[Rfam]
RNA sequence: UAGCCGGUGAAAGUCCGGUCACGGGAGGAGCCAAGCCCCCGUGUAGCUAGGAUGCCUGCGUACGGAGAAAUCUGUGCGCAGAAGCGCAUCGACAAAAGUACCCGUCAGAGACGGGGCGAGCAACCGGUCAGGCCGUAACAUAA
Numbered sequence: 001u002a003g004c005c006g007g008u009g010a011a012a013g014u015c016c017g018g019u020c021a022c023g024g025g026a027g028g029a030g031c032c033a034a035g036c037c038c039c040c041g042u043g044u045a046g047c048u049a050g051g052a053u054g055c056c057u058g059c060g061u062a063c064g065g066a067g068a069a070a071u072c073u074g075u076g077c078g079c080a081g082a083a084g085c086g087c088a089u090c091g092a093c094a095a096a097a098g099u100a101c102c103c104g105u106c107a108g109a110g111a112c113g114g115g116g117c118g119a120g121c122a123a124c125c126g127g128u129c130a131g132g133c134c135g136u137a138a139c140a141u142a143a
Stems, first nucleotide, its partner, number of pairs: 020043005051090005056081006065072002098117001101115005120136002
Group II catalytic intron D1-D4-4: a 143-nucleotide RNA from Paenibacillus solanacearum. The match comes from Rfam's covariance-model search (108 bits). On this family, see Bonen and Vogel, Trends Genet 2001: "The ins and outs of group II introns". The family has 90 seed sequences and 840 matches in Rfam 15.1. Group II introns are found in rRNA, tRNA and mRNA of organelles in fungi, plants and protists, and also in mRNA in bacteria.